[Rfam]
RNA sequence: GCAAGGUGAUGACCUAUGAAUUGACAGCCAGGGAUUGACUGCCUGUCAGUUCUGUAGGCCACUGCUGUGU
Numbered sequence: 001g002c003a004a005g006g007u008g009a010u011g012a013c014c015u016a017u018g019a020a021u022u023g024a025c026a027g028c029c030a031g032g033g034a035u036u037g038a039c040u041g042c043c044u045g046u047c048a049g050u051u052c053u054g055u056a057g058g059c060c061a062c063u064g065c066u067g068u069g070u
Base pairs, nucleotide, nucleotide: 001070002069003068005066006065007064008063010061011060013058014057015056016055018052019051020050021049022048023047024046025045026044027043029041030040031039

Description: A member of the RNA family "mir-192/215 microRNA precursor family" from Neogobius melanostomus, 70 nucleotides long. Lineage of the source: Eukaryota > Teleostomi > Actinopterygii > Clupeocephala > Neogobius. A search with the family's covariance model found it, with a score of 69 bits. The family's consensus secondary structure was predicted with PFOLD. Rfam's curators write: This family represents the human microRNA (miRNA) precursors mir-192 and mir-215. Animal miRNAs are transcribed as ~70nt precursors and subsequently processed by the Dicer enzyme to give a ~22nt product. In this case the mature sequence comes from the 5' arm of the precursor. The family has 48 seed sequences and 810 matches in Rfam 15.1. The literature on the family includes a 2003 paper in RNA by Lagos-Quintana et al., "New microRNAs from mouse and human". Gene Ontology terms of the family: RISC complex and miRNA-mediated post-transcriptional gene silencing.